[Rfam]
RNA sequence: ACCGCCACGGACGGCGGUGGUUCCAUGCAGUAACAAGUUUGCUUGCAAACUUGUAGCCCACAAAUGUGCAAGGAUGUACAUUUGUGGGC
Numbered sequence: 001a002c003c004g005c006c007a008c009g010g011a012c013g014g015c016g017g018u019g020g021u022u023c024c025a026u027g028c029a030g031u032a033a034c035a036a037g038u039u040u041g042c043u044u045g046c047a048a049a050c051u052u053g054u055a056g057c058c059c060a061c062a063a064a065u066g067u068g069c070a071a072g073g074a075u076g077u078a079c080a081u082u083u084g085u086g087g088g089c
Base pairs, nucleotide, nucleotide: 001018002017003016004015005014006013034053035052036051037050038049039048040047041046056089057088058087059086060085061084062083063082064081065080066079067078068077069076
Dot-bracket structure: ((((((......))))))...............((((((((....))))))))..((((((((((((((......))))))))))))))
TD-2 RNA: an 89-nucleotide sequence from Treponema vincentii. The match comes from Rfam's covariance-model search (59 bits). The family has 36 seed sequences and 310 matches in Rfam 15.1. The source organism's lineage runs through Bacteria, Spirochaetota, Spirochaetia, Treponema and Treponema vincentii. Its Rfam clan is "TD (Treponema denticola) motifs". The literature on the family includes a 2007 paper in Nucleic Acids Res by Weinberg et al., "Identification of 22 candidate structured RNAs in bacteria using the CMfinder comparative genomics pipeline". By type it is a small RNA. The family's consensus secondary structure is taken from published work.